Nucleotides: 100
Base pairs, nucleotide, nucleotide: 018086020084021083022082023081024080025079029049030048031047032046033045034044035043058076059075060074061073063071
Number, partner (000 for none) and nucleotide at each position: 001000a002000c003000c004000a005000a006000a007000u008000a009000c010000a011000a012000a013000g014000c015000u016000c017000c018086g019000a020084u021083u022082c023081g024080u025079a026000u027000a028000a029049u030048c031047c032046c033045c034044g035043c036000a037000g038000g039000a040000u041000g042000g043035g044034c045033g046032g047031g048030g049029a050000g051000u052000c053000u054000c055000u056000a057000g058076c059075a060074g061073g062000u063071a064000c065000c066000g067000a068000c069000a070000u071063u072000u073061c074060c075059u076058g077000a078000c079025u080024a081023c082022g083021a084020a085000a086018c087000a088000g089000c090000g091000c092000g093000g094000c095000u096000g097000a098000a099000a100000a
A member of the RNA family "Purine riboswitch aptamer" from Alkalicoccus urumqiensis, 100 nucleotides long. A search with the family's covariance model found it, with a score of 56 bits. The base pairs follow the family's consensus structure, which is taken from published work.